[Rfam]
RNA sequence: AUCUCCAGAGAAUCUUGGUAAAUGCAGAUUCUGAUUCAGUGUCUGGGACGGGGCCUGAGAAUCUGCAUUUCUAACAAGCUCCCAGGUGAUGCUGA
Numbered sequence: 001a002u003c004u005c006c007a008g009a010g011a012a013u014c015u016u017g018g019u020a021a022a023u024g025c026a027g028a029u030u031c032u033g034a035u036u037c038a039g040u041g042u043c044u045g046g047g048a049c050g051g052g053g054c055c056u057g058a059g060a061a062u063c064u065g066c067a068u069u070u071c072u073a074a075c076a077a078g079c080u081c082c083c084a085g086g087u088g089a090u091g092c093u094g095a
Stems, first nucleotide, its partner, number of pairs: 003088001005086001010081002014078004019073002021069002024066005030060003

A member of the RNA family "mir-544 microRNA precursor family" from Prolemur simus, 95 nucleotides long. The organism belongs to Prolemur, within Eukaryota. The match comes from Rfam's covariance-model search (67 bits).